The family of this 163-nucleotide RNA sequence from Phyllostomus discolor is "U1 spliceosomal RNA". The family's RNA type in Rfam is spliceosomal small nuclear RNA. The family's consensus secondary structure is taken from published work. Gene Ontology terms of the family: U1 snRNP, mRNA 5'-splice site recognition and pre-mRNA 5'-splice site binding. From the family's description: U1 is a small nuclear RNA (snRNA) component of the spliceosome (involved in pre-mRNA splicing). Its 5' end forms complementary base pairs with the 5' splice junction, thus defining the 5' donor site of an intron. There are significant differences in sequence and secondary structure between metazoan and yeast U1 snRNAs, the latter being much longer (568 nucleotides as compared to 164 nucleotides in human). Nevertheless, secondary structure predictions suggest that all U1 snRNAs share a 'common core' consisting of helices I, II, the proximal region of III, and IV. This family does not contain the larger yeast sequences. Taxonomically the source falls in Phyllostomus (Eukaryota, Craniata, Euteleostomi, Theria).
RNA sequence: CAAUUUACCUGGCAGAGGAGAUUCCAUAAUCACCAAGGUGGUUUUCCAGGACAAGGCUUACCCCUUGCAUUUUGGGUGUGCUGACCCCUGUGAUUUCCCCUAACGUGGGAAACUCAACUGCAUAAUCUGUAGUAGUGGGGGACUGCAUUCAUGCUCUCACCUG
Number, nucleotide and partner (000 for none) at each position: 001c000002a000003a000004u000005u000006u000007a000008c000009c000010u000011g000012g121013c120014a119015g118016a000017g047018g046019a045020g044021a043022u000023u000024c041025c040026a039027u038028a000029a000030u000031c000032a000033c000034c000035a000036a000037g000038g027039u026040g025041g024042u000043u021044u020045u019046c018047c017048a089049g088050g087051a000052c000053a000054a000055g082056g081057c080058u000059u078060a077061c076062c075063c074064c000065u000066u000067g000068c000069a000070u000071u000072u000073u000074g063075g062076g061077u060078g059079u000080g057081c056082u055083g000084a000085c000086c000087c050088c049089u048090g000091u116092g115093a114094u112095u111096u110097c000098c108099c107100c000101u000102a000103a000104c000105g000106u000107g099108g098109g000110a096111a095112a094113c000114u093115c092116a091117a000118c015119u014120g013121c012122a000123u000124a000125a000126u000127c000128u000129g000130u000131a000132g000133u000134a000135g000136u000137g162138g161139g160140g000141g158142a157143c000144u000145g154146c153147a152148u000149u000150c000151a000152u147153g146154c145155u000156c000157u142158c141159a000160c139161c138162u137163g000